[Rfam]
RNA: c-di-AMP riboswitch aptamer (ydaO/yuaA leader)
RNA sequence: CGCAGGUCACCGCCUAAUCGAUGCGGCGCAUCGAAUCGGGGACCCACUUGAGUUCUGGGGUGAAUCCGCUGCGUGCACCAGCACGUUCGCGGUAGGGCAGUCUUCCUAGCCCGAACCCGUCAGCUAACCCGGUCGGCGGUAAGAGGAAGAAAC
Numbered sequence: 001c002g003c004a005g006g007u008c009a010c011c012g013c014c015u016a017a018u019c020g021a022u023g024c025g026g027c028g029c030a031u032c033g034a035a036u037c038g039g040g041g042a043c044c045c046a047c048u049u050g051a052g053u054u055c056u057g058g059g060g061u062g063a064a065u066c067c068g069c070u071g072c073g074u075g076c077a078c079c080a081g082c083a084c085g086u087u088c089g090c091g092g093u094a095g096g097g098c099a100g101u102c103u104u105c106c107u108a109g110c111c112c113g114a115a116c117c118c119g120u121c122a123g124c125u126a127a128c129c130c131g132g133u134c135g136g137c138g139g140u141a142a143g144a145g146g147a148a149g150a151a152a153c
Base pairs, nucleotide, nucleotide: 011138012137013136014135018034019033020032021031022030023029024028035133036132037131038130039129040128045057046056058118059117060116066092067091068090069089095112096111097110098109